[Rfam]
RNA sequence: GACCAGUGAUGUGAUUUGAGAAAUUGUCCGUACCAUCUGAGACUCGUAAAAAAAAGGAGUCUUUGAUCUGUUCAUACUCUUACCUUUCUGAGGUCG
Numbered sequence: 001g002a003c004c005a006g007u008g009a010u011g012u013g014a015u016u017u018g019a020g021a022a023a024u025u026g027u028c029c030g031u032a033c034c035a036u037c038u039g040a041g042a043c044u045c046g047u048a049a050a051a052a053a054a055a056g057g058a059g060u061c062u063u064u065g066a067u068c069u070g071u072u073c074a075u076a077c078u079c080u081u082a083c084c085u086u087u088c089u090g091a092g093g094u095c096g
Stems, first nucleotide, its partner, number of pairs: 001095004